Rfam assigns this 99-nucleotide RNA sequence from Litchfieldella anticariensis to the family "t44 RNA". Rfam classes the family as a small RNA. The literature on the family includes a 2002 paper in Nucleic Acids Res by Tjaden et al., "Transcriptome analysis of Escherichia coli using high-density oligonucleotide probe arrays".
RNA sequence: UUAGAAACGCCUUGAAAUCACACAUGCACCGUCACAUGGUCCCGGGUGCUGUCGGCUGACCUCCGGCAGUCGGAUCCAUGGGGUGUGUGGAGGCCUAAC
Numbered sequence: 001u002u003a004g005a006a007a008c009g010c011c012u013u014g015a016a017a018u019c020a021c022a023c024a025u026g027c028a029c030c031g032u033c034a035c036a037u038g039g040u041c042c043c044g045g046g047u048g049c050u051g052u053c054g055g056c057u058g059a060c061c062u063c064c065g066g067c068a069g070u071c072g073g074a075u076c077c078a079u080g081g082g083g084u085g086u087g088u089g090g091a092g093g094c095c096u097a098a099c
Stems, first nucleotide, its partner, number of pairs: 023089008035080005040074003048070005